This 119-nucleotide RNA sequence from Paraflavitalea soli belongs to the Rfam family "Group II catalytic intron D1-D4-2".
RNA sequence: GGUGGUGGGCCCACCGCACACGCUGUACAGGCGGAGUGUGCAAACCACCUUAAUGAUGCUGUAGAUAAAAAAGCUAUGGUAUUGAGCGAUUAAGGAAAAGGCGUCUAUAGGCGUCAGGU
Numbered sequence: 001g002g003u004g005g006u007g008g009g010c011c012c013a014c015c016g017c018a019c020a021c022g023c024u025g026u027a028c029a030g031g032c033g034g035a036g037u038g039u040g041c042a043a044a045c046c047a048c049c050u051u052a053a054u055g056a057u058g059c060u061g062u063a064g065a066u067a068a069a070a071a072a073g074c075u076a077u078g079g080u081a082u083u084g085a086g087c088g089a090u091u092a093a094g095g096a097a098a099a100g101g102c103g104u105c106u107a108u109a110g111g112c113g114u115c116a117g118g119u
Base pairs, nucleotide, nucleotide: 001015002014003013004012005011016041017040018039019038020037021036023034024033025032026031046118048095049094051092052091053090054089055083056082058080059079060078062076063075064074100115101114102113103112104111105110

The base pairs follow the family's consensus structure.